[Rfam]
RNA sequence: GGCUGGUCCAACAGUAGUGAGUCUAAAUAAUGAUUAUUCACAGUCAAUUACAGGUUGACCUACUUGUCUGCCCCCUCUCACUACUGCAUUUGACUAGUCUAAA
Numbered sequence: 001g002g003c004u005g006g007u008c009c010a011a012c013a014g015u016a017g018u019g020a021g022u023c024u025a026a027a028u029a030a031u032g033a034u035u036a037u038u039c040a041c042a043g044u045c046a047a048u049u050a051c052a053g054g055u056u057g058a059c060c061u062a063c064u065u066g067u068c069u070g071c072c073c074c075c076u077c078u079c080a081c082u083a084c085u086g087c088a089u090u091u092g093a094c095u096a097g098u099c100u101a102a103a
Stems, first nucleotide, its partner, number of pairs: 001099008010091002014087002016082006032065002036061001

Rfam assigns this 103-nucleotide RNA from Chrysochloris asiatica to the family "Y RNA". Y RNAs are components of the Ro ribonucleoprotein particle (Ro RNP), in association with Ro60 and La proteins. The Y RNAs and Ro60 and La proteins are well conserved, but the function of the Ro RNP is not known. In humans the RNA component can be one of four small RNAs -- hY1, hY3, hY4 and hY5. These small RNAs are predicted to fold into a conserved secondary structure containing three stem structures. Lineage of the source: Eukaryota > Craniata > Tetrapoda > Eutheria > Chrysochloris. The base pairs follow the family's consensus structure, which is taken from published work. A reference for the family is Van Horn et al. (1995), "Caenorhabditis elegans embryos contain only one major species of Ro RNP", RNA.